[Rfam]
RNA sequence: GCAGUUGGCCGGUCUGUCGCGUGCACGUCAGCGUGCAGGAGGAAAGUCCGGGCAACACAGAGCAUCCUACUUCCUAACAGAAAGCUGUCCGCGAGGGUAGAGUAACGUAGAAGAAAAUAACCGCCACUCCUUUCGGGGAGAGGUAAGGGUGAGAAGGUGGGGUAAGAGCCCACCAGCCGUAUGGUGACAUAUCGGGCUGUACGUCUUAGGAGUUGUAAGGUCAUGUAAACCGGCGUUAUGAGAGUUGCUCGCUCCAUGUCGGAGGGUAGACCGCUAAAGUGUCGUGGUGACACGUCACUCAGAUAAAUGACAGGCACUUUUUAUAAGUAAAAUUAUAGAAGGUACAGAACUCGGCUUAUAGGCUGACUGCUUUU
Numbered sequence: 001g002c003a004g005u006u007g008g009c010c011g012g013u014c015u016g017u018c019g020c021g022u023g024c025a026c027g028u029c030a031g032c033g034u035g036c037a038g039g040a041g042g043a044a045a046g047u048c049c050g051g052g053c054a055a056c057a058c059a060g061a062g063c064a065u066c067c068u069a070c071u072u073c074c075u076a077a078c079a080g081a082a083a084g085c086u087g088u089c090c091g092c093g094a095g096g097g098u099a100g101a102g103u104a105a106c107g108u109a110g111a112a113g114a115a116a117a118u119a120a121c122c123g124c125c126a127c128u129c130c131u132u133u134c135g136g137g138g139a140g141a142g143g144u145a146a147g148g149g150u151g152a153g154a155a156g157g158u159g160g161g162g163u164a165a166g167a168g169c170c171c172a173c174c175a176g177c178c179g180u181a182u183g184g185u186g187a188c189a190u191a192u193c194g195g196g197c198u199g200u201a202c203g204u205c206u207u208a209g210g211a212g213u214u215g216u217a218a219g220g221u222c223a224u225g226u227a228a229a230c231c232g233g234c235g236u237u238a239u240g241a242g243a244g245u246u247g248c249u250c251g252c253u254c255c256a257u258g259u260c261g262g263a264g265g266g267u268a269g270a271c272c273g274c275u276a277a278a279g280u281g282u283c284g285u286g287g288u289g290a291c292a293c294g295u296c297a298c299u300c301a302g303a304u305a306a307a308u309g310a311c312a313g314g315c316a317c318u319u320u321u322u323a324u325a326a327g328u329a330a331a332a333u334u335a336u337a338g339a340a341g342g343u344a345c346a347g348a349a350c351u352c353g354g355c356u357u358a359u360a361g362g363c364u365g366a367c368u369g370c371u372u373u374u
Stems, first nucleotide, its partner, number of pairs: 001370010011359001012315007020039001022037006044357003048354005053215004060250004065211005070084003074080001085100001087098004101206002105204005121148002123144003127140005156174006176197001177195003180191004219272004230262005242254004279298003283294004
A member of the RNA family "Bacterial RNase P class A" from Bacteroides finegoldii, 374 nucleotides long. The match comes from Rfam's covariance-model search (233 bits). The organism belongs to Bacteroides, within Bacteria. The base pairs follow the family's consensus structure, which is taken from published work.